[Rfam]
RNA sequence: UUGGCAUGAUGAGGAAAUCAAUCGUUUCUAACUGAUCCACUGGAUGAGAAAUUCCUCCUACUCAUUCUGA
Numbered sequence: 001u002u003g004g005c006a007u008g009a010u011g012a013g014g015a016a017a018u019c020a021a022u023c024g025u026u027u028c029u030a031a032c033u034g035a036u037c038c039a040c041u042g043g044a045u046g047a048g049a050a051a052u053u054c055c056u057c058c059u060a061c062u063c064a065u066u067c068u069g070a
Stems, first nucleotide, its partner, number of pairs: 006065004029048001032043001

Record summary
This 70-nucleotide RNA sequence from Oryza sativa belongs to the Rfam family "Small nucleolar RNA Z105". Rfam links the family to the GO terms nucleolus and RNA processing. Taxonomically the source falls in Oryza sativa (Eukaryota, Viridiplantae, commelinids, Oryzinae). Rfam classes the family as a C/D-box small nucleolar RNA. A reference for the family is Chen et al. (2003), "The high diversity of snoRNAs in plants: identification and comparative study of 120 snoRNA genes from Oryza sativa", Nucleic Acids Res. Rfam's curators put it in the seed alignment.